[Rfam]
RNA sequence: AGCUGAUGCACAUGGUGGCUCCCUCCCAGUUCCACCGCAGCAGCUGUUCCCCUCUGGAGGUUUAUUGACCUUCAUAACUUGCAAGGGCCUUGGAGCAAUCCGGAGGCCCUUUUUU
Numbered sequence: 001a002g003c004u005g006a007u008g009c010a011c012a013u014g015g016u017g018g019c020u021c022c023c024u025c026c027c028a029g030u031u032c033c034a035c036c037g038c039a040g041c042a043g044c045u046g047u048u049c050c051c052c053u054c055u056g057g058a059g060g061u062u063u064a065u066u067g068a069c070c071u072u073c074a075u076a077a078c079u080u081g082c083a084a085g086g087g088c089c090u091u092g093g094a095g096c097a098a099u100c101c102g103g104a105g106g107c108c109c110u111u112u113u114u115u
Base pairs, nucleotide, nucleotide: 001045002044003043004042005041007039008038009037015035016034017033018032055074056073057072058071059070060069061068084110085109086108087107088106089105090103091102092101093100

A member of the RNA family "Alphaproteobacterial ar15" from Rhizobium sp. RU36D, 115 nucleotides long. The family is grouped with related families in Rfam's "suhB sRNA clan". Lineage of the source: Bacteria > Alphaproteobacteria > Hyphomicrobiales > Rhizobiaceae > Rhizobium.